Record summary:
Shown here is a 259-nucleotide RNA from Streptomyces sp. yr375, a member of the family "Streptomyces sRNA 4677". Taxonomically the source falls in Streptomyces (Bacteria, Bacillati, Actinomycetota, Streptomycetaceae). From the family's description: Located in the intergenic region between anti-sigma factor SCO4677 gene and a putative regulatory protein gene SCO4676. scr4677 expression requires the SCO4677 activity and scr4677 sRNA itself seem to affect the levels of the SCO4676-associated transcripts. The match comes from Rfam's covariance-model search (194 bits). The base pairs follow the family's consensus structure. It is annotated as a small RNA.
[Rfam]
RNA sequence: UGCUCCGGUGGCACGGGCGGUCUUUUUUCAAGCAAGAACCGGUGAGAAAGAACCCCACCAAACCCCACCCCUCCCGCCCCGUCGCGCAAACUCACUCCCCCGAGUGAAUAUGCCCAACUCGGCUGGAUUUGGCACCGGUUGCCUGCCUUACGCUCAGCGCAGCACCACCACCACCGGACGGCAGACAUACGACGGCCCCCGCCGGGACUGGCAUCCCAAUGGCGAGGGCCUGACCACCGAGGAAGAACCCAACUUCCCG
Numbered sequence: 001u002g003c004u005c006c007g008g009u010g011g012c013a014c015g016g017g018c019g020g021u022c023u024u025u026u027u028u029c030a031a032g033c034a035a036g037a038a039c040c041g042g043u044g045a046g047a048a049a050g051a052a053c054c055c056c057a058c059c060a061a062a063c064c065c066c067a068c069c070c071c072u073c074c075c076g077c078c079c080c081g082u083c084g085c086g087c088a089a090a091c092u093c094a095c096u097c098c099c100c101c102g103a104g105u106g107a108a109u110a111u112g113c114c115c116a117a118c119u120c121g122g123c124u125g126g127a128u129u130u131g132g133c134a135c136c137g138g139u140u141g142c143c144u145g146c147c148u149u150a151c152g153c154u155c156a157g158c159g160c161a162g163c164a165c166c167a168c169c170a171c172c173a174c175c176g177g178a179c180g181g182c183a184g185a186c187a188u189a190c191g192a193c194g195g196c197c198c199c200c201g202c203c204g205g206g207a208c209u210g211g212c213a214u215c216c217c218a219a220u221g222g223c224g225a226g227g228g229c230c231u232g233a234c235c236a237c238c239g240a241g242g243a244a245g246a247a248c249c250c251a252a253c254u255u256c257c258c259g
Stems, first nucleotide, its partner, number of pairs: 007238004016078004092107006122158005194230005200224003204217004241257005